[Rfam]
Background:
Shown here is a 75-nucleotide RNA sequence from Streptomyces monashensis, a member of the family "ASpks TB sRNA". Taxonomically the source falls in Streptomyces (Bacteria, Bacillati, Actinomycetota, Streptomycetaceae). A search with the family's covariance model found it, with a score of 79 bits.
RNA sequence: CUUCAGCGCCCCGAGCCACAGCGGCCGCUCGGCGGGCCGGUCCUGACCGUAGACGGCGAGCAGCGCCUGCGCCUC
Numbered sequence: 001c002u003u004c005a006g007c008g009c010c011c012c013g014a015g016c017c018a019c020a021g022c023g024g025c026c027g028c029u030c031g032g033c034g035g036g037c038c039g040g041u042c043c044u045g046a047c048c049g050u051a052g053a054c055g056g057c058g059a060g061c062a063g064c065g066c067c068u069g070c071g072c073c074u075c
Stems, first nucleotide, its partner, number of pairs: 015025003032070002038065002043060002047056003